[Rfam]
RNA sequence: CUCGGCGGCGACGACUGGCGCGGGUGGACCACCACCGGGAAGUCACAGGGGUUCGCAUCGCCCGCCUGGGUGCACCCG
Number, nucleotide and partner (000 for none) at each position: 001c000002u000003c051004g000005g000006c048007g000008g046009c000010g044011a043012c042013g000014a000015c039016u038017g066018g065019c064020g063021c000022g000023g000024g035025u034026g033027g032028a000029c000030c000031a000032c027033c026034a025035c024036c000037g000038g016039g015040a000041a000042g012043u011044c010045a000046c008047a000048g006049g000050g000051g003052u000053u000054c000055g073056c072057a071058u070059c069060g000061c000062c000063c020064g019065c018066c017067u000068g000069g059070g058071u057072g056073c055074a000075c000076c000077c000078g000
Notes
A member of the RNA family "ZMP/ZTP riboswitch aptamer (pfl RNA motif)" from Knoellia aerolata, 78 nucleotides long. A search with the family's covariance model found it, with a score of 44 bits. NCBI's taxonomy places the organism under Bacteria, Actinomycetes, Micrococcales, Intrasporangiaceae, Knoellia aerolata. Pairs were carried over by alignment from the consensus structure, which is taken from published work.